[Rfam]
RNA sequence: AGUGCCUAACAGGGGUCCACAGCAGGAGUCUUCAUGUGAUGGUCCCUAUCAGCCUUAAAGGUUGGGAAUCCUUCU
Numbered sequence: 001a002g003u004g005c006c007u008a009a010c011a012g013g014g015g016u017c018c019a020c021a022g023c024a025g026g027a028g029u030c031u032u033c034a035u036g037u038g039a040u041g042g043u044c045c046c047u048a049u050c051a052g053c054c055u056u057a058a059a060g061g062u063u064g065g066g067a068a069u070c071c072u073u074c075u
Stems, first nucleotide, its partner, number of pairs: 013046003017042002021075002024072004028040003050064006